[Rfam]
RNA sequence: CAACAAGCCAACGGGGGCUCGCACCAGCGGGCUGAGAGGACGGCUAGGGCCGUCGACCGUAUGAACCUGACCGGGUAAUGCCGGCGUAGGGAGGAAGCAUCAUGGGCAC
Number, nucleotide and partner (000 for none) at each position: 001c000002a000003a000004c000005a000006a000007g000008c000009c094010a000011a060012c059013g058014g057015g000016g054017g032018c031019u030020c029021g028022c000023a000024c000025c000026a000027g000028c021029g020030g019031g018032c017033u000034g000035a000036g000037a000038g000039g000040a053041c052042g051043g050044c000045u000046a000047g000048g000049g000050c043051c042052g041053u040054c016055g000056a000057c014058c013059g012060u011061a000062u000063g000064a000065a000066c090067c089068u088069g087070a000071c084072c083073g082074g081075g000076u000077a000078a000079u000080g000081c074082c073083g072084g071085c000086g000087u069088a068089g067090g066091g000092a000093g000094g009095a000096a000097g000098c000099a000100u000101c000102a000103u000104g000105g000106g000107c000108a000109c000
Description: This 109-nucleotide RNA sequence from Nocardia terpenica belongs to the Rfam family "TPP riboswitch aptamer (THI element)". It scores 56 bits against the family's covariance model. Rfam's curators write: Vitamin B(1) in its active form thiamin pyrophosphate (TPP) is an essential coenzyme that is synthesised by coupling of pyrimidine and thiazole moieties in bacteria. Taxonomically the source falls in Nocardia (Bacteria, Bacillati, Actinomycetes, Mycobacteriales).